Record summary: The record is a 160-nucleotide sequence from Streptomyces alboniger, which matches "c-di-AMP riboswitch aptamer (ydaO/yuaA leader)" in Rfam. The match comes from Rfam's covariance-model search (64 bits). The pairing is the family consensus, mapped onto this sequence.
RNA sequence: GAAACCCUUCCACUCACUCACACACGGCAGGAGCGGGGGACCCAGGUAAGCCGCCGAUCCGGUUUCCGGAACGGCUCGGGGUGAAGGCGCGUUCAAAUGCGCCGGGACAGCUCCCGUCCAAACCCGACAGCUCACCUCGCAGGCGACGGAGAGGAACUCU
Numbered sequence: 001g002a003a004a005c006c007c008u009u010c011c012a013c014u015c016a017c018u019c020a021c022a023c024a025c026g027g028c029a030g031g032a033g034c035g036g037g038g039g040a041c042c043c044a045g046g047u048a049a050g051c052c053g054c055c056g057a058u059c060c061g062g063u064u065u066c067c068g069g070a071a072c073g074g075c076u077c078g079g080g081g082u083g084a085a086g087g088c089g090c091g092u093u094c095a096a097a098u099g100c101g102c103c104g105g106g107a108c109a110g111c112u113c114c115c116g117u118c119c120a121a122a123c124c125c126g127a128c129a130g131c132u133c134a135c136c137u138c139g140c141a142g143g144c145g146a147c148g149g150a151g152a153g154g155a156a157c158u159c160u
Base pairs, nucleotide, nucleotide: 005031006030033140034139035138036137037136038135043078079125080124081123087102088101089100090099105119106118107117108116